Record summary: This 32-nucleotide RNA sequence from Leuconostoc kimchii belongs to the Rfam family "L31-Firmicutes ribosomal protein leader". The organism belongs to Leuconostoc kimchii, within Bacteria. Rfam's curators put it in the seed alignment. Its Rfam clan is "Ribosomal Protein L31 Leader clan". For this family Rfam cites "Discovery of 20 novel ribosomal leader candidates in bacteria and archaea" (Eckert and Weinberg, BMC Microbiol, 2020). By type it is a cis-regulatory leader.
[Rfam]
RNA sequence: CUCUGUUACAGAAGUAUCAGGGCGCUAAGGAG
Number, nucleotide and partner (000 for none) at each position: 001c022002u021003c020004u019005g018006u000007u016008a015009c014010a000011g000012a000013a000014g009015u008016a007017u000018c005019a004020g003021g002022g001023c000024g000025c000026u000027a000028a000029g000030g000031a000032g000